The record is a 70-nucleotide sequence from Plasmodium falciparum, which matches "Selenocysteine insertion sequence 5" in Rfam. Rfam links the family to the GO term selenocysteine incorporation.
RNA sequence: AGUGAACGAAUGAAGAAUUGUUCCUAAAUCCUGAAUAAAUAUAGGAAGGAACAAAUUGGACAUGUUCAUU
Numbered sequence: 001a002g003u004g005a006a007c008g009a010a011u012g013a014a015g016a017a018u019u020g021u022u023c024c025u026a027a028a029u030c031c032u033g034a035a036u037a038a039a040u041a042u043a044g045g046a047a048g049g050a051a052c053a054a055a056u057u058g059g060a061c062a063u064g065u066u067c068a069u070u
Stems, first nucleotide, its partner, number of pairs: 002069007015057002018054007029046005
For this family Rfam cites "A selenocysteine tRNA and SECIS element in Plasmodium falciparum" (Mourier et al., RNA, 2005).
NCBI's taxonomy places the organism under Eukaryota, Apicomplexa, Plasmodiidae, Plasmodium, Plasmodium falciparum.
It is one of the family's seed sequences.